[Rfam]
RNA sequence: CGGCUGUAGCUACAUCAAUGUUCUUCAGGAGUUUACUGGCCGGUUGUCGUGGGGUUGUUCUCAGCCCCUCAGUCGACAAAUCUGCUUACCGAACUUCUUACAUCC
Numbered sequence: 001c002g003g004c005u006g007u008a009g010c011u012a013c014a015u016c017a018a019u020g021u022u023c024u025u026c027a028g029g030a031g032u033u034u035a036c037u038g039g040c041c042g043g044u045u046g047u048c049g050u051g052g053g054g055u056u057g058u059u060c061u062c063a064g065c066c067c068c069u070c071a072g073u074c075g076a077c078a079a080a081u082c083u084g085c086u087u088a089c090c091g092a093a094c095u096u097c098u099u100a101c102a103u104c105c
Stems, first nucleotide, its partner, number of pairs: 027098007038086003042082004046077004
RNA: Small nucleolar RNA snoR109
Organism: Kalanchoe fedtschenkoi